Background:
This 67-nucleotide RNA from Bacillus sp. FJAT-50079 belongs to the Rfam family "Bacillaceae-1 RNA". Pairs were carried over by alignment from the consensus structure, which is taken from published work. Taxonomically the source falls in Bacillus (Bacteria, Bacillota, Caryophanales, Bacillaceae). The match comes from Rfam's covariance-model search (48 bits).
RNA sequence: CUCGAUUGACGGUCGACUAAGAUUGCCUACUUCCUGUGGCAACGCCGACGCACCAACAUCCUGUUGG
Numbered sequence: 001c002u003c004g005a006u007u008g009a010c011g012g013u014c015g016a017c018u019a020a021g022a023u024u025g026c027c028u029a030c031u032u033c034c035u036g037u038g039g040c041a042a043c044g045c046c047g048a049c050g051c052a053c054c055a056a057c058a059u060c061c062u063g064u065u066g067g
Stems, first nucleotide, its partner, number of pairs: 012049004017044001027039004053067005